RNA sequence: GAAUAGAUUUGUUAGGCGAGACUCCUAUACAAACAUAGGCUACUGCCCAAAAACGUCGAGAGACACCAAUGGGUAGAACAGAAAUUGUCGAUUUAAGGCUUUUUUUAAGGUAGCUAAAAGUUUAAACUUUUUACGUUGUAUAGUGUCAAAACUCAACGAUAGAAUCGAAAA
Numbered sequence: 001g002a003a004u005a006g007a008u009u010u011g012u013u014a015g016g017c018g019a020g021a022c023u024c025c026u027a028u029a030c031a032a033a034c035a036u037a038g039g040c041u042a043c044u045g046c047c048c049a050a051a052a053a054c055g056u057c058g059a060g061a062g063a064c065a066c067c068a069a070u071g072g073g074u075a076g077a078a079c080a081g082a083a084a085u086u087g088u089c090g091a092u093u094u095a096a097g098g099c100u101u102u103u104u105u106u107a108a109g110g111u112a113g114c115u116a117a118a119a120g121u122u123u124a125a126a127c128u129u130u131u132u133a134c135g136u137u138g139u140a141u142a143g144u145g146u147c148a149a150a151a152c153u154c155a156a157c158g159a160u161a162g163a164a165u166c167g168a169a170a171a
Stems, first nucleotide, its partner, number of pairs: 006166005011157002013096001015153002020147003025143008039114005045074005055064003081105004087099003116131003